[Rfam]
Record summary
The family of this 97-nucleotide part of an RNA from Halomarina oriensis is "Archaeal large subunit ribosomal RNA". The match comes from Rfam's covariance-model search (2860 bits).
RNA sequence: GACGGGGCAUAAAAGGCCGUAGACAGAACGACAUGGGGGCGACCCCACAGUAGAAUGUCUGCGGAGCCGAUGUUCCGUCGUACGUUUUGAAAAACGA
Numbered sequence: 001g002a003c004g005g006g007g008c009a010u011a012a013a014a015g016g017c018c019g020u021a022g023a024c025a026g027a028a029c030g031a032c033a034u035g036g037g038g039g040c041g042a043c044c045c046c047a048c049a050g051u052a053g054a055a056u057g058u059c060u061g062c063g064g065a066g067c068c069g070a071u072g073u074u075c076c077g078u079c080g081u082a083c084g085u086u087u088u089g090a091a092a093a094a095c096g097a
Base pairs, nucleotide, nucleotide: 001079002078003077004076005075006074007073008072009071010070015068016067019062020061021060022059023058024057025056029053034047035046036045037044038043083096084095085094